[Rfam]
RNA sequence: CUGGCCUCCUCUCCUGCUGGCCAGCUGGGACAGGAGUGAUGAAUGAGCCAUCCUUCCAACCCCUUUCUGUCUUUUCUGGUCCAGGUGUGGCAAAGGGAAAC
Numbered sequence: 001c002u003g004g005c006c007u008c009c010u011c012u013c014c015u016g017c018u019g020g021c022c023a024g025c026u027g028g029g030a031c032a033g034g035a036g037u038g039a040u041g042a043a044u045g046a047g048c049c050a051u052c053c054u055u056c057c058a059a060c061c062c063c064u065u066u067c068u069g070u071c072u073u074u075u076c077u078g079g080u081c082c083a084g085g086u087g088u089g090g091c092a093a094a095g096g097g098a099a100a101c
Stems, first nucleotide, its partner, number of pairs: 005096003008090002011087001013085004019081006027073009036063001038061001040059001041056003045052002

A member of the RNA family "mir-4743 microRNA precursor family" from Callithrix jacchus, 101 nucleotides long. Gene Ontology terms of the family: RISC complex and miRNA-mediated post-transcriptional gene silencing. The match comes from Rfam's covariance-model search (86 bits).